Shown here is a 77-nucleotide RNA sequence from Crocodylus porosus, a member of the family "Mammalian CPEB3 ribozyme". The family has 14 seed sequences and 5,706 matches in Rfam 15.1. From the family's description: The mammalian CPEB3 ribozyme is a self cleaving RNA located in the second intron of the CPEB3 gene which belongs to a family of genes regulating messenger RNA polyadenylation. This ribozyme is highly conserved and found only in mammals. The CPEB3 ribozyme is structurally and biochemically related to the human hepatitis delta virus (HDV) ribozyme and the HDV ribozyme is proposed to have arisen from the human transcriptome. There is currently only one other known self cleaving ribozyme in mammals, the CoTC motif.
RNA sequence: UGUGUGCUUUGGGGGACUGCAGCAGGAGCAUUCAUCUCACAGCCCCUGUCAGAUUACUCAGAUCUGUGAAUCCUGCU
Numbered sequence: 001u002g003u004g005u006g007c008u009u010u011g012g013g014g015g016a017c018u019g020c021a022g023c024a025g026g027a028g029c030a031u032u033c034a035u036c037u038c039a040c041a042g043c044c045c046c047u048g049u050c051a052g053a054u055u056a057c058u059c060a061g062a063u064c065u066g067u068g069a070a071u072c073c074u075g076c077u
Base pairs, nucleotide, nucleotide: 013046014045015044017042018041021077022076023075024074025073026072027071028040050066051065052064053063054062055061

The match comes from Rfam's covariance-model search (49 bits). The family's consensus secondary structure is taken from published work.